The family of this 65-nucleotide sequence is "DUF3800-VIII RNA". It is annotated as a small RNA. Bacteroidetes, Cyanobacteria, Firmicutes, Planctomycetes (1 example), Proteobacteria, Tenericutes (1 example).

[Rfam]
RNA sequence: AAAGCCCUGUUGAUGCGAAAUCUUACGUUUCACGUGAGAUACUAAUUUAGCUGAGACGGGGCUUU
Numbered sequence: 001a002a003a004g005c006c007c008u009g010u011u012g013a014u015g016c017g018a019a020a021u022c023u024u025a026c027g028u029u030u031c032a033c034g035u036g037a038g039a040u041a042c043u044a045a046u047u048u049a050g051c052u053g054a055g056a057c058g059g060g061g062c063u064u065u
Base pairs, nucleotide, nucleotide: 001065002064003063004062005061006060007059008058009057010056011055015051016050020040021039022038023037024036025035026034027033028032
The family's consensus secondary structure is taken from published work.